[Rfam]
RNA sequence: UAUUAGGUUGGUGCAAAAGUAACUGCAGUCUUUGCCAUUAAAGUAAUGACAAAGACUGCAGUUACUUUUGCACCAACCCAAUA
Numbered sequence: 001u002a003u004u005a006g007g008u009u010g011g012u013g014c015a016a017a018a019g020u021a022a023c024u025g026c027a028g029u030c031u032u033u034g035c036c037a038u039u040a041a042a043g044u045a046a047u048g049a050c051a052a053a054g055a056c057u058g059c060a061g062u063u064a065c066u067u068u069u070g071c072a073c074c075a076a077c078c079c080a081a082u083a
Stems, first nucleotide, its partner, number of pairs: 001083004006078029036048005

Rfam assigns this 83-nucleotide RNA sequence from Cebus imitator to the family "mir-548 microRNA precursor family". Rfam links the family to the GO terms miRNA-mediated post-transcriptional gene silencing and RISC complex. The family has 11 seed sequences and 3,009 matches in Rfam 15.1. The base pairs follow the family's consensus structure, which was predicted with WAR. A search with the family's covariance model found it, with a score of 93 bits.